[Rfam]
A member of the RNA family "drum RNA" from Treponema succinifaciens, 125 nucleotides long. NCBI's taxonomy places the organism under Bacteria, Spirochaetota, Treponematales, Treponema, Treponema succinifaciens. From the family's description: Firmicutes, Bacteroidetes (1 example), Proteobacteria (2 examples), Spirochaetes (2 examples). Rfam classes the family as a small RNA. It is one of the family's seed sequences.
RNA sequence: AUGCGUUUGAGCUGAAAGAACGAGAUAGGAAUUGCGUUGUUUCAGUUAGCAGUAUAAGGGUUAUGCAUUUACCAAGAGCCUAUCUUAGGUUGCCUUAGUUGAGUAGCUGACAGAAAAUGCUUAUU
Numbered sequence: 001a002u003g004c005g006u007u008u009g010a011g012c013u014g015a016a017a018g019a020a021c022g023a024g025a026u027a028g029g030a031a032u033u034g035c036g037u038u039g040u041u042u043c044a045g046u047u048a049g050c051a052g053u054a055u056a057a058g059g060g061u062u063a064u065g066c067a068u069u070u071a072c073c074a075a076g077a078g079c080c081u082a083u084c085u086u087a088g089g090u091u092g093c094c095u096u097a098g099u100u101g102a103g104u105a106g107c108u109g110a111c112a113g114a115a116a117a118u119g120c121u122u123a124u125u
Stems, first nucleotide, its partner, number of pairs: 002051003012045006019038004026082004065120003088108006